[Rfam]
Nucleotides: 056
Stems, first nucleotide, its partner, number of pairs: 001053012014040001019034005
Number, partner (000 for none) and nucleotide at each position: 001053a002052a003051a004050g005049g006048a007047g008046c009045a010044a011043u012042a013000c014040c015000g016000c017000c018000c019034u020033c021032u022031u023030g024000a025000u026000a027000g028000a029000a030023c031022a032021a033020g034019a035000a036000a037000u038000u039000g040014g041000u042012u043011a044010u045009u046008g047007c048006u049005c050004c051003u052002u053001u054000a055000c056000u
Rfam assigns this 56-nucleotide RNA to the family "Plastid-psbA-3 3UTR RNA". Rfam's curators write: Plastid psbA-3 is a non-coding RNA (ncRNA) present in plastids. It was identified in inverted repeat sequences in the 3 prime untranslate region (3UTR) of photosystem II quinone-binding protein (psbA). The sequence is in the family's curated seed alignment. Pairs were carried over by alignment from the consensus structure, which was predicted with LocARNA. A reference for the family is Richter et al. (2023), "Retrograde signaling in plants: A critical review focusing on the GUN pathway and beyond", Plant Commun.